[Rfam]
RNA sequence: GGAGGCGGAUAGGUGCUGGUGUGCCUCGCGGUCUUCAAAACCGUUGUGGGGAGUUUGAAGCUUCCCGGGUGAGUUCGAUUCUCACCCCCUUC
Dot-bracket structure: (((((.((..((((((....)))))).(((((.......)))))..(((((...........)))))..((((.......)))))).)))))